This 136-nucleotide RNA from Liquorilactobacillus ghanensis belongs to the Rfam family "Ribosomal protein L10 leader". By type it is a cis-regulatory leader. A search with the family's covariance model found it, with a score of 80 bits. This family is a putative r-protein leader autoregulatory structure found in B. subtilis and other low-GC Gram-positive bacteria. It is located in the 5' untranslated regions of mRNAs encoding ribosomal proteins L10 and L12 (rplJ-rplL). A Rho-independent transcription terminator structure that is probably involved in regulation is included at the 3' end.
RNA sequence: AAUUUUUUUAUGACUCUACCUAAGACUCAGGUGGCGCAAGCCUUAAUCCAGUACCUGCCGAGGAGUAAUAAUUAAUUAUUUACUUGGGAAAAUAGUCUCUGUGUCUAGGUAGGCAUAGGGAUUUUUAUAUGGGAAA
Numbered sequence: 001a002a003u004u005u006u007u008u009u010a011u012g013a014c015u016c017u018a019c020c021u022a023a024g025a026c027u028c029a030g031g032u033g034g035c036g037c038a039a040g041c042c043u044u045a046a047u048c049c050a051g052u053a054c055c056u057g058c059c060g061a062g063g064a065g066u067a068a069u070a071a072u073u074a075a076u077u078a079u080u081u082a083c084u085u086g087g088g089a090a091a092a093u094a095g096u097c098u099c100u101g102u103g104u105c106u107a108g109g110u111a112g113g114c115a116u117a118g119g120g121a122u123u124u125u126u127a128u129a130u131g132g133g134a135a136a
Stems, first nucleotide, its partner, number of pairs: 028057005033042003096121010